The record is a 58-nucleotide sequence from Monodelphis domestica, which matches "mir-7386 microRNA precursor family" in Rfam. Its family is annotated with miRNA-mediated post-transcriptional gene silencing and RISC complex in the Gene Ontology. Taxonomically the source falls in Monodelphis (Eukaryota, Eumetazoa, Metatheria, Didelphinae). The family's consensus secondary structure was predicted with RNAalifold.
RNA sequence: CCAUGGAUAGGGUGUUUUAUUUUGUGAACAUAGCCAAAAUAAACACCUUAUUCUUGGG
Numbered sequence: 001c002c003a004u005g006g007a008u009a010g011g012g013u014g015u016u017u018u019a020u021u022u023u024g025u026g027a028a029c030a031u032a033g034c035c036a037a038a039a040u041a042a043a044c045a046c047c048u049u050a051u052u053c054u055u056g057g058g
Stems, first nucleotide, its partner, number of pairs: 002056002005053008018041007026034001